[Rfam]
RNA sequence: CCACUUAAUACGCCGAAUCCUUUACAGGUACGGAGGAUCCUAUAUUUUGGGGUGAAGCGCUAUCAACGCAGGGCUGAGCCUGGCCCUAACCCGGCAGCUAACUCCGGAGGCGAAGAAAGGCGGUUUG
Numbered sequence: 001c002c003a004c005u006u007a008a009u010a011c012g013c014c015g016a017a018u019c020c021u022u023u024a025c026a027g028g029u030a031c032g033g034a035g036g037a038u039c040c041u042a043u044a045u046u047u048u049g050g051g052g053u054g055a056a057g058c059g060c061u062a063u064c065a066a067c068g069c070a071g072g073g074c075u076g077a078g079c080c081u082g083g084c085c086c087u088a089a090c091c092c093g094g095c096a097g098c099u100a101a102c103u104c105c106g107g108a109g110g111c112g113a114a115g116a117a118a119g120g121c122g123g124u125u126u127g
Stems, first nucleotide, its partner, number of pairs: 011112004019028002031106005040049001050092003058068002061065001071086004
Dot-bracket structure: ..........((((....((......))..(((((....(........)(((.....((.(...).))..((((........))))...))).........)))))..))))...............
c-di-AMP riboswitch aptamer (ydaO/yuaA leader): a 127-nucleotide RNA from Sporomusa acidovorans. The organism belongs to Sporomusa acidovorans, within Bacteria.